[Rfam]
Rfam assigns this 77-nucleotide RNA to the family "c-di-GMP-I-GGC riboswitch aptamer". Rfam 15.1 lists 1,298 matches to the family in 717 species. It scores 75 bits against the family's covariance model. Clan: c-di-GMP_I riboswitch clan.
RNA sequence: AAAGACAAAGCCAAACCUGUCGUAAGGCGGGGACGGAAAGCCACGGGUCCUGAAAAAGGAUAGCCGGGUUGCCUUGU
Numbered sequence: 001a002a003a004g005a006c007a008a009a010g011c012c013a014a015a016c017c018u019g020u021c022g023u024a025a026g027g028c029g030g031g032g033a034c035g036g037a038a039a040g041c042c043a044c045g046g047g048u049c050c051u052g053a054a055a056a057a058g059g060a061u062a063g064c065c066g067g068g069u070u071g072c073c074u075u076g077u
Stems, first nucleotide, its partner, number of pairs: 001077001003074002011036002016031006034063001039070004044066003047061003